Plastid-psbA-4 3UTR RNA: a 55-nucleotide RNA sequence from Kolkwitzia amabilis. It is one of the family's seed sequences. The base pairs follow the family's consensus structure, which was predicted with LocARNA. Clan: Plastid-psbA 3UTR RNA clan. By type it is a cis-regulatory element. The source organism's lineage runs through Eukaryota, Streptophyta, Euphyllophyta, eudicotyledons and Kolkwitzia.
RNA sequence: AAAAAGGAGCAAUAAUCCCCUUCUUGUUCUAUCAAGAGGGGAUUAUUGCUCCUUU
Numbered sequence: 001a002a003a004a005a006g007g008a009g010c011a012a013u014a015a016u017c018c019c020c021u022u023c024u025u026g027u028u029c030u031a032u033c034a035a036g037a038g039g040g041g042a043u044u045a046u047u048g049c050u051c052c053u054u055u
Base pairs, nucleotide, nucleotide: 003055004054005053006052007051008050009049010048011047012046013045014044018041019040021038022037023036024035025034026033